Rfam assigns this 128-nucleotide sequence from Salmonella enterica to the family "EFASI RNA". NCBI's taxonomy places the organism under Bacteria, Pseudomonadota, Enterobacteriaceae, Salmonella, Salmonella enterica subsp. arizonae serovar 62:z4,z23:-.

RNA sequence: AAGAUAGAUAUCGAGGGGGGCAUGACGCCCCGGAGAAUUUCCUGCUCACGCAGGCAGCCUGUACCGCGUACAGUCUGAAACUCCCUGGACCUCAACAACCUGCCACCCCGGCGUGAAGGUAUCGUUCU
Numbered sequence: 001a002a003g004a005u006a007g008a009u010a011u012c013g014a015g016g017g018g019g020g021c022a023u024g025a026c027g028c029c030c031c032g033g034a035g036a037a038u039u040u041c042c043u044g045c046u047c048a049c050g051c052a053g054g055c056a057g058c059c060u061g062u063a064c065c066g067c068g069u070a071c072a073g074u075c076u077g078a079a080a081c082u083c084c085c086u087g088g089a090c091c092u093c094a095a096c097a098a099c100c101u102g103c104c105a106c107c108c109c110g111g112c113g114u115g116a117a118g119g120u121a122u123c124g125u126u127c128u
Stems, first nucleotide, its partner, number of pairs: 002128003007123006017031005032084004041054005055077003060072005